[Rfam]
RNA sequence: GGCGUAAAGCGUCUGUAGGAUGUUUACCAAGUCUCAAAUUAAAACUCUAGGCUCAACCUAGAGCUAGUUUGAGAAACUGAUAAACUAGAGACUGGGGGAGGCAAGCGGAAUGGCCGGUGUAGUACUAAUAUGCAUUGAUAUCGGCUAGAACACCAAAUGCGAAGGCAGCUUGCUAUAACAGUCCUGACUCUGAGAGACGAAAGCGUGGGUAGCGAAUGGGAUUAGAUACCCCAGUAGUCCACGCCGUAAACUAUGGGUACUAAGUAUUAGGAGUAUCGAUCCUCCUAGUGCUGUCGAGCUAAGCUAACGCCUUAAGUACCCCGCCUGGGGAGUACGGUCGCAAGACUAAAACUCAAAGGAAU
Numbered sequence: 001g002g003c004g005u006a007a008a009g010c011g012u013c014u015g016u017a018g019g020a021u022g023u024u025u026a027c028c029a030a031g032u033c034u035c036a037a038a039u040u041a042a043a044a045c046u047c048u049a050g051g052c053u054c055a056a057c058c059u060a061g062a063g064c065u066a067g068u069u070u071g072a073g074a075a076a077c078u079g080a081u082a083a084a085c086u087a088g089a090g091a092c093u094g095g096g097g098g099a100g101g102c103a104a105g106c107g108g109a110a111u112g113g114c115c116g117g118u119g120u121a122g123u124a125c126u127a128a129u130a131u132g133c134a135u136u137g138a139u140a141u142c143g144g145c146u147a148g149a150a151c152a153c154c155a156a157a158u159g160c161g162a163a164g165g166c167a168g169c170u171u172g173c174u175a176u177a178a179c180a181g182u183c184c185u186g187a188c189u190c191u192g193a194g195a196g197a198c199g200a201a202a203g204c205g206u207g208g209g210u211a212g213c214g215a216a217u218g219g220g221a222u223u224a225g226a227u228a229c230c231c232c233a234g235u236a237g238u239c240c241a242c243g244c245c246g247u248a249a250a251c252u253a254u255g256g257g258u259a260c261u262a263a264g265u266a267u268u269a270g271g272a273g274u275a276u277c278g279a280u281c282c283u284c285c286u287a288g289u290g291c292u293g294u295c296g297a298g299c300u301a302a303g304c305u306a307a308c309g310c311c312u313u314a315a316g317u318a319c320c321c322c323g324c325c326u327g328g329g330g331a332g333u334a335c336g337g338u339c340g341c342a343a344g345a346c347u348a349a350a351a352c353u354c355a356a357a358g359g360a361a362u
Base pairs, nucleotide, nucleotide: 001325002324003323009322011198012197013196014195016192018191019190020189022085023084024083025082026081028079030078031077032074033073034072035071036070037069038068039067040066045063046062047061048060049059050058051057089185090184092181093180094179097176100174101173102172103171104170105169106168107151111147112146113145114144115143116142117141118140122133123132124131159166160165203244204243205242206241207240208239212238213237217233218232219231220230255321256320257319258318259317260316263292264291265290266289267288268287269286270285271284272283273282303310304309327354328353329352336347337346338345339344
Bacterial small subunit ribosomal RNA: a 362-nucleotide part of an RNA from an uncultured bacterium. The family is grouped with related families in Rfam's "SSU clan". The sequence is in the family's curated seed alignment.